[Rfam]
Notes:
Shown here is a 423-nucleotide RNA sequence from Syntrophothermus lipocalidus, a member of the family "Bacterial RNase P class A". The family's RNA type in Rfam is ribozyme.
RNA sequence: CGAGUAAAUCAGAUAGCCGCGAGGUUACACCUCGAGGAAAGUCGGGGCUCCGCAGGGCAAGGUGCUGGGUAACACCCAGUGGGGGCGACCCCAAGGAUAGUGCCACAGAAACAAACCGCCCGGCACUCAAUGUACGGUUCAAACGAAUUCAAGGACCUCCUCCCGUGUUGCGUUACGAUGCGCAUCUUAACAGGAUUGAACUGUGCAUUGAGUGCCGGGUAAGGGUGGAAAGGUGAGGUAAGAGCUCACCAGCAGUUAGGCGACUAACUGGCUCGGUAAACCCCACCUGGAGCAAGACCAAAUAGGGAAGCUAUGGAGUGGCCCGCUCCGCUUCCGGGUUAGGUCGCUGGAGGUGUCAGGCAACUGGCAUCCUAGAUAGAUGGCUAUCUAAUACAGAACCCCGCUUAUAGAUUUGCUCGCACC
Numbered sequence: 001c002g003a004g005u006a007a008a009u010c011a012g013a014u015a016g017c018c019g020c021g022a023g024g025u026u027a028c029a030c031c032u033c034g035a036g037g038a039a040a041g042u043c044g045g046g047g048c049u050c051c052g053c054a055g056g057g058c059a060a061g062g063u064g065c066u067g068g069g070u071a072a073c074a075c076c077c078a079g080u081g082g083g084g085g086c087g088a089c090c091c092c093a094a095g096g097a098u099a100g101u102g103c104c105a106c107a108g109a110a111a112c113a114a115a116c117c118g119c120c121c122g123g124c125a126c127u128c129a130a131u132g133u134a135c136g137g138u139u140c141a142a143a144c145g146a147a148u149u150c151a152a153g154g155a156c157c158u159c160c161u162c163c164c165g166u167g168u169u170g171c172g173u174u175a176c177g178a179u180g181c182g183c184a185u186c187u188u189a190a191c192a193g194g195a196u197u198g199a200a201c202u203g204u205g206c207a208u209u210g211a212g213u214g215c216c217g218g219g220u221a222a223g224g225g226u227g228g229a230a231a232g233g234u235g236a237g238g239u240a241a242g243a244g245c246u247c248a249c250c251a252g253c254a255g256u257u258a259g260g261c262g263a264c265u266a267a268c269u270g271g272c273u274c275g276g277u278a279a280a281c282c283c284c285a286c287c288u289g290g291a292g293c294a295a296g297a298c299c300a301a302a303u304a305g306g307g308a309a310g311c312u313a314u315g316g317a318g319u320g321g322c323c324c325g326c327u328c329c330g331c332u333u334c335c336g337g338g339u340u341a342g343g344u345c346g347c348u349g350g351a352g353g354u355g356u357c358a359g360g361c362a363a364c365u366g367g368c369a370u371c372c373u374a375g376a377u378a379g380a381u382g383g384c385u386a387u388c389u390a391a392u393a394c395a396g397a398a399c400c401c402c403g404c405u406u407a408u409a410g411a412u413u414u415g416c417u418c419g420c421a422c423c
Base pairs, nucleotide, nucleotide: 001419002418003417004416005415006414007413008412009411010410011408012388013387014386015385016384017383018382020034021033022032023031024030025029039406040405041404043403044402045401046400047399048292049291050290051289055324056323057322058321060288061287062286063285064284065079066078067077068076069075080094081092082091083090084089095283096282100281101280102277103276104275116224117223118220119219120218121217122216123215124214125213126212127211128210129209130208131207132206133205134204135203136202137201138200139199140198141197142196232250233249234248235247236246237245252272253270254269255268256267257266258265259264296345297344298343299342306335307334308333309332310331311330315329316328317327318326319325352371353370354369355368356367357366358365359364